[Rfam]
RNA sequence: AGUUCCGAGGGAGACGUCUGAGCGCAUCGCCGACCACACGGUCACCAUGUGGCGAGCGCGAGUCAAUGGUGAGACCGGCCCUGAUCA
Numbered sequence: 001a002g003u004u005c006c007g008a009g010g011g012a013g014a015c016g017u018c019u020g021a022g023c024g025c026a027u028c029g030c031c032g033a034c035c036a037c038a039c040g041g042u043c044a045c046c047a048u049g050u051g052g053c054g055a056g057c058g059c060g061a062g063u064c065a066a067u068g069g070u071g072a073g074a075c076c077g078g079c080c081c082u083g084a085u086c087a
Stems, first nucleotide, its partner, number of pairs: 003087001008082004013064003023058003028054004040076002042072005
The family of this 87-nucleotide sequence is "c-di-GMP-II-GAG riboswitch aptamer".
Clan: c-di-GMP_II riboswitch clan.
A reference for the family is Weinberg et al. (2017), "Bioinformatic analysis of riboswitch structures uncovers variant classes with altered ligand specificity", Proc Natl Acad Sci U S A.
It is one of the family's seed sequences.